Rfam assigns this 94-nucleotide RNA to the family "PhotoRC-II RNA".
[Rfam]
RNA sequence: UAUCAAUAUCUGCUCCCGCUAACCAAGACCUAUGGGAGGAUAAAUUACGUCGUCAUAUCCAGUAGUGAGGGAGUACUGGAAAUAAGUUUCGCAU
Numbered sequence: 001u002a003u004c005a006a007u008a009u010c011u012g013c014u015c016c017c018g019c020u021a022a023c024c025a026a027g028a029c030c031u032a033u034g035g036g037a038g039g040a041u042a043a044a045u046u047a048c049g050u051c052g053u054c055a056u057a058u059c060c061a062g063u064a065g066u067g068a069g070g071g072a073g074u075a076c077u078g079g080a081a082a083u084a085a086g087u088u089u090c091g092c093a094u
Base pairs, nucleotide, nucleotide: 013038014037015036016035017034027051028050029049058080059079060078061077062076063075064074

By type it is a cis-regulatory element.